[Rfam]
RNA sequence: UUGAACCUUCGGGGCAGGGUGAAAUUCCCUACCGGCGGUGAGGAUACGCACGUAUAUCUCAAGCCCGCGACUCCCGGCUCACAAGGCCGGGACUGACUUGGUGGAACUCCAAGGCCGACGGUUAUAGUCCGGAUGGGAGAAGGUGAAG
Numbered sequence: 001u002u003g004a005a006c007c008u009u010c011g012g013g014g015c016a017g018g019g020u021g022a023a024a025u026u027c028c029c030u031a032c033c034g035g036c037g038g039u040g041a042g043g044a045u046a047c048g049c050a051c052g053u054a055u056a057u058c059u060c061a062a063g064c065c066c067g068c069g070a071c072u073c074c075c076g077g078c079u080c081a082c083a084a085g086g087c088c089g090g091g092a093c094u095g096a097c098u099u100g101g102u103g104g105a106a107c108u109c110c111a112a113g114g115c116c117g118a119c120g121g122u123u124a125u126a127g128u129c130c131g132g133a134u135g136g137g138a139g140a141a142g143g144u145g146a147a148g
Base pairs, nucleotide, nucleotide: 005144006143007142008141009140010139017029018028019027031128032127033117034116035068036067037066038065063115064114072092073091097113098112099111100110101109119131120130121129
RNA: FMN riboswitch aptamer (RFN element)
Organism: Paenibacillus sedimenti